[Rfam]
RNA sequence: CCAAAGGCUCUUUUAAGAGCCACACACAAAUACUUCAAAGAAGCUG
Numbered sequence: 001c002c003a004a005a006g007g008c009u010c011u012u013u014u015a016a017g018a019g020c021c022a023c024a025c026a027c028a029a030a031u032a033c034u035u036c037a038a039a040g041a042a043g044c045u046g
Base pairs, nucleotide, nucleotide: 006021007020008019009018010017011016
Overview: A member of the RNA family "Histone 3' UTR stem-loop" from Muraenolepis orangiensis, 46 nucleotides long. Pairs were carried over by alignment from the consensus structure, which is taken from published work. It is annotated as a cis-regulatory element. The organism belongs to Muraenolepis, within Eukaryota. Gene Ontology term of the family: mRNA 3'-end processing by stem-loop binding and cleavage. Rfam 15.1 lists 44,596 matches to the family in 976 species. The match comes from Rfam's covariance-model search (41 bits). Rfam describes the family as follows. The mRNAs of metazoan histone genes lack a poly-A tail. 3' end processing occurs at a site between a highly conserved stem-loop (modelled by this family) and a purine rich region around 20 nts downstream (the histone downstream element, or HDE). The stem-loop is bound by a 31 kDa stem-loop binding protein (SLBP - also termed the histone hairpin binding protein, or HBP). Together with U7 snRNA binding of the HDE, SLBP binding nucleate s the formation of the processing complex. The histone 3' UTR stem-loop is also involved in nucleocytoplasmic transport of the mRNA, and in stability regulation and translation efficiency in the cytoplasm.